[Rfam]
RNA sequence: GCCACAUGAAAGACAAGGUAGUGAGACGGUUGGAAUAGAAAACAUCUCACUACCCAUGUCUUUCACAAAGCA
Numbered sequence: 001g002c003c004a005c006a007u008g009a010a011a012g013a014c015a016a017g018g019u020a021g022u023g024a025g026a027c028g029g030u031u032g033g034a035a036u037a038g039a040a041a042a043c044a045u046c047u048c049a050c051u052a053c054c055c056a057u058g059u060c061u062u063u064c065a066c067a068a069a070g071c072a
Base pairs, nucleotide, nucleotide: 008064009063010062011061012060013059014058015057017054018053020051021050022049023048024047025046026045028043
Rfam assigns this 72-nucleotide RNA sequence from Ladona fulva to the family "mir-71 microRNA precursor family". On this family, see Li et al., BMC Genomics 2009: "Direct sequencing and expression analysis of a large number of miRNAs in Aedes aegypti and a multi-species survey of novel mosquito miRNAs". Pairs were carried over by alignment from the consensus structure, which was predicted with RNAalifold. Gene Ontology terms of the family: miRNA-mediated post-transcriptional gene silencing and RISC complex. The organism belongs to Ladona, within Eukaryota. A search with the family's covariance model found it, with a score of 50 bits.